Rfam assigns this 117-nucleotide RNA sequence from Aggregatibacter actinomycetemcomitans to the family "Aggregatibacter sRNA JA02". Its family is annotated with response to iron ion in the Gene Ontology. Rfam's curators put it in the seed alignment. The source organism's lineage runs through Bacteria, Pseudomonadati, Pseudomonadota, Gammaproteobacteria and Aggregatibacter actinomycetemcomitans.
[Rfam]
RNA sequence: CAAGUACUAAAUUUUUUACUUGAAUUAUUGACAUAAAAUAACUGCUUAUAAACCAAGAAGAAUUUUUUGCGUGGUAAAAAUCGCAUUAUUAAAAAUUUGUGUAAAGGGACAAAUUUU
Numbered sequence: 001c002a003a004g005u006a007c008u009a010a011a012u013u014u015u016u017u018a019c020u021u022g023a024a025u026u027a028u029u030g031a032c033a034u035a036a037a038a039u040a041a042c043u044g045c046u047u048a049u050a051a052a053c054c055a056a057g058a059a060g061a062a063u064u065u066u067u068u069g070c071g072u073g074g075u076a077a078a079a080a081u082c083g084c085a086u087u088a089u090u091a092a093a094a095a096u097u098u099g100u101g102u103a104a105a106g107g108g109a110c111a112a113a114u115u116u117u
Stems, first nucleotide, its partner, number of pairs: 004070003009065008019057004025051004032044002071084005092117009
On this family, see Amarasinghe et al., Mol Oral Microbiol 2012: "Novel iron-regulated and Fur-regulated small regulatory RNAs in Aggregatibacter actinomycetemcomitans". Pairs were carried over by alignment from the consensus structure, which was predicted with RNAfold.